Rfam assigns this 154-nucleotide RNA sequence from Castor canadensis to the family "U12 minor spliceosomal RNA". Its Rfam clan is "U2 clan". Rfam links the family to the GO terms mRNA branch site recognition, pre-mRNA branch point binding and U12 snRNP. It is annotated as a spliceosomal small nuclear RNA.
RNA sequence: AUACCUUAAACUUAUAAGUCAGGAAAAUAAUGGUUCAGGAUGAUCGAUGCCAGAAUCCUACCGCCAAUGUGUGAGUAAUUUUUUGAGAUGGUAAAGGCUGUCCCUAAGGUGACUCACUUACUUUGCAGGAUGCCUGGUUAUAGUUAUCUUCCUG
Numbered sequence: 001a002u003a004c005c006u007u008a009a010a011c012u013u014a015u016a017a018g019u020c021a022g023g024a025a026a027a028u029a030a031u032g033g034u035u036c037a038g039g040a041u042g043a044u045c046g047a048u049g050c051c052a053g054a055a056u057c058c059u060a061c062c063g064c065c066a067a068u069g070u071g072u073g074a075g076u077a078a079u080u081u082u083u084u085g086a087g088a089u090g091g092u093a094a095a096g097g098c099u100g101u102c103c104c105u106a107a108g109g110u111g112a113c114u115c116a117c118u119u120a121c122u123u124u125g126c127a128g129g130a131u132g133c134c135u136g137g138u139u140a141u142a143g144u145u146a147u148c149u150u151c152c153u154g
Base pairs, nucleotide, nucleotide: 004023005022006021008019032057033056034055035054036053038051039050059073060072061071090152091151095149096148097147100144101143105137107135108134109133110132111131113129114128117125